[Rfam]
RNA: mir-9242 microRNA precursor family
Organism: Myotis brandtii
RNA sequence: GGCCUCCCUCUGUGGGGCGAUCAAUCGUGGGACUCCGCAAUCCAUCGCCCAGCAGAGGGGGGCC
Numbered sequence: 001g002g003c004c005u006c007c008c009u010c011u012g013u014g015g016g017g018c019g020a021u022c023a024a025u026c027g028u029g030g031g032a033c034u035c036c037g038c039a040a041u042c043c044a045u046c047g048c049c050c051a052g053c054a055g056a057g058g059g060g061g062g063c064c
Base pairs, nucleotide, nucleotide: 001064002063003062004061005060006059007058008057009056010055011054012053013052015050016049017048018047019046020045021044024041025040027038028037029036030035